[Rfam]
RNA sequence: GGAUCGGGAGGCGGCCGGUGGGACGGUUGCCAUGAAUUGAUCCGGACAGACCCCUCUCAAGUGGGUGCGGCGUCGUAGCCCGACGAUGCGCA
Number, nucleotide and partner (000 for none) at each position: 001g043002g042003a041004u040005c039006g000007g000008g000009a000010g031011g030012c029013g028014g027015c026016c025017g024018g000019u000020g000021g000022g000023a000024c017025g016026g015027u014028u013029g012030c011031c010032a000033u000034g000035a000036a000037u000038u000039g005040a004041u003042c002043c001044g000045g000046a000047c000048a000049g000050a000051c000052c000053c000054c000055u000056c000057u000058c000059a000060a000061g000062u000063g000064g000065g000066u092067g091068c090069g089070g000071c088072g087073u086074c085075g084076u000077a000078g000079c000080c000081c000082g000083a000084c075085g074086a073087u072088g071089c069090g068091c067092a066
Rfam assigns this 92-nucleotide RNA sequence from Poseidonocella sedimentorum to the family "Rhodo-rpoB RNA". The match comes from Rfam's covariance-model search (76 bits).